The family of this 116-nucleotide sequence from Brachypodium distachyon is "MIR5070 microRNA precursor family". Rfam 15.1 lists 266 matches to the family in 8 species. Its family is annotated with RISC complex and miRNA-mediated post-transcriptional gene silencing in the Gene Ontology.
RNA sequence: AAGGGUACCCUCUGACCCUACUUAGUUCAACCAAAUGAACUAAAAUUUUAAAAUCGCAUCACUUUUUAAACAACUAGUUCAUUUGUUUGAACUAAAGAGGGUCAGAGGGUACCCUU
Numbered sequence: 001a002a003g004g005g006u007a008c009c010c011u012c013u014g015a016c017c018c019u020a021c022u023u024a025g026u027u028c029a030a031c032c033a034a035a036u037g038a039a040c041u042a043a044a045a046u047u048u049u050a051a052a053a054u055c056g057c058a059u060c061a062c063u064u065u066u067u068a069a070a071c072a073a074c075u076a077g078u079u080c081a082u083u084u085g086u087u088u089g090a091a092c093u094a095a096a097g098a099g100g101g102u103c104a105g106a107g108g109g110u111a112c113c114c115u116u
Base pairs, nucleotide, nucleotide: 002115003114004113005112006111007110008109009108010107011106012105013104014103015102016101017100018099019098022095023094024093025092026091027090028089029088030087032085033084034083035082036081037080038079039078040077041076042075